[Rfam]
This 109-nucleotide RNA from Caproicibacterium amylolyticum belongs to the Rfam family "THF (Tetrahydrofolate) riboswitch aptamer". A reference for the family is Ames et al. (2010), "A eubacterial riboswitch class that senses the coenzyme tetrahydrofolate", Chem Biol. The organism belongs to Caproicibacterium, within Bacteria. Its family is annotated with tetrahydrofolate metabolic process in the Gene Ontology.

RNA sequence: AGCAGAGUAGGAAAUUACGCGUAAAGUGCCCGCCGAACGGGGAGUUGUCGGCGGGACGAAAAGCAAAACAACCGUUUUGCUUGCGGUGUGGUUUUCGCAUCCCGCUGCU
Numbered sequence: 001a002g003c004a005g006a007g008u009a010g011g012a013a014a015u016u017a018c019g020c021g022u023a024a025a026g027u028g029c030c031c032g033c034c035g036a037a038c039g040g041g042g043a044g045u046u047g048u049c050g051g052c053g054g055g056a057c058g059a060a061a062a063g064c065a066a067a068a069c070a071a072c073c074g075u076u077u078u079g080c081u082u083g084c085g086g087u088g089u090g091g092u093u094u095u096c097g098c099a100u101c102c103c104g105c106u107g108c109u
Base pairs, nucleotide, nucleotide: 001109002108003107004106005105010096011095012094013093014092015091016090017089018088019087020085021084022083026057027056029055030054031053032052033051034050035049036048040102041101042100044098061082062081063080064079065078066077067076068075